[Rfam]
RNA sequence: AGGAAGCCACAGUGGCGGGGGCAGCUCUGGAGCCCUGGAGUCAGCUCCCGCAGUAGCUCCGGGGCUCUCCGUCUGCAGGGCCUGGAGGCUCCGGGGCGGG
Numbered sequence: 001a002g003g004a005a006g007c008c009a010c011a012g013u014g015g016c017g018g019g020g021g022c023a024g025c026u027c028u029g030g031a032g033c034c035c036u037g038g039a040g041u042c043a044g045c046u047c048c049c050g051c052a053g054u055a056g057c058u059c060c061g062g063g064g065c066u067c068u069c070c071g072u073c074u075g076c077a078g079g080g081c082c083u084g085g086a087g088g089c090u091c092c093g094g095g096g097c098g099g100g
Stems, first nucleotide, its partner, number of pairs: 002092002005090004010084003014073007023066009035053003